RNA: nrdJ RNA
RNA sequence: ACCUGUUGCGAGCGGCGCGAGCGGCGCCCGCAGCACAAGACAAACACCGUGCCACGGGAAGAUCGAGGCACUUUAGGGCGUU
Number, nucleotide and partner (000 for none) at each position: 001a000002c000003c000004u035005g034006u033007u032008g031009c030010g029011a000012g027013c026014g025015g000016c023017g022018c000019g000020a000021g000022c017023g016024g000025c014026g013027c012028c000029c010030g009031c008032a007033g006034c005035a004036c000037a000038a000039g000040a000041c000042a000043a000044a000045c000046a000047c000048c000049g071050u070051g069052c068053c067054a000055c065056g064057g000058g000059a000060a000061g000062a000063u000064c056065g055066a000067g053068g052069c051070a050071c049072u000073u000074u000075a000076g000077g000078g000079c000080g000081u000082u000